[Rfam]
Rfam assigns this 85-nucleotide RNA from Propionigenium maris to the family "c-di-GMP-I riboswitch aptamer". About the family: GEMM was predicted in a large-scale screen for bacterial structured RNA regulatory elements.
RNA sequence: CUUCGAAAAAGGCAAAGCAGAGGAAACUCUGUGGCGCAAAACUAUAGGGUCUAAGUUCUCAGGAAUAUGACAGCCAGCUGCCGAA
Dot-bracket structure: ...........((...((((((....))))))...))..(.((...(((((....(((....)))...)))..)))).)......
Numbered sequence: 001c002u003u004c005g006a007a008a009a010a011g012g013c014a015a016a017g018c019a020g021a022g023g024a025a026a027c028u029c030u031g032u033g034g035c036g037c038a039a040a041a042c043u044a045u046a047g048g049g050u051c052u053a054a055g056u057u058c059u060c061a062g063g064a065a066u067a068u069g070a071c072a073g074c075c076a077g078c079u080g081c082c083g084a085a
Stems, first nucleotide, its partner, number of pairs: 012037002017032006040079001042077002047075002049071003056065003
Its family is annotated with cyclic-di-GMP binding in the Gene Ontology.